Shown here is a 98-nucleotide RNA sequence from Psychrilyobacter sp. S5, a member of the family "Purine riboswitch aptamer".
A search with the family's covariance model found it, with a score of 62 bits.

[Rfam]
RNA sequence: UAUAGUAUCCUCAAAUAGAACGAUAUAAUUUCUCAAUAUGGGAGGAAGUUUCUACAAGUCACCGUAAAUGACUUACUAUGGUAUUAAUAUUUUUUUAA
Number, nucleotide and partner (000 for none) at each position: 001u000002a000003u000004a000005g000006u000007a000008u000009c000010c000011u000012c000013a000014a000015a000016u000017a000018g084019a000020a082021c081022g000023a079024u078025a077026u000027a000028a000029u047030u046031u045032c044033u043034c042035a000036a000037u000038a000039u000040g000041g000042g034043a033044g032045g031046a030047a029048g000049u000050u000051u000052c000053u000054a000055c000056a074057a073058g072059u071060c070061a069062c000063c000064g000065u000066a000067a000068a000069u061070g060071a059072c058073u057074u056075a000076c000077u025078a024079u023080g000081g021082u020083a000084u018085u000086a000087a000088u000089a000090u000091u000092u000093u000094u000095u000096u000097a000098a000

The family's consensus secondary structure is taken from published work. Rfam describes the family as follows. Riboswitches are metabolite binding domains within certain messenger RNAs that serve as precision sensors for their corresponding targets.